RNA sequence: UCUGUCAGGGGCGAUGAAGUCCGCCGUAACCGCCUUACCCUAAAGGCUGAUGACUUCUGUUUUAUG
Numbered sequence: 001u002c003u004g005u006c007a008g009g010g011g012c013g014a015u016g017a018a019g020u021c022c023g024c025c026g027u028a029a030c031c032g033c034c035u036u037a038c039c040c041u042a043a044a045g046g047c048u049g050a051u052g053a054c055u056u057c058u059g060u061u062u063u064a065u066g
Base pairs, nucleotide, nucleotide: 010025011024012023013022016057017056018055019054020053021052032047033046034045035044
A member of the RNA family "Fluoride riboswitch aptamer (crcB RNA motif)", 66 nucleotides long. Rfam's curators put it in the seed alignment.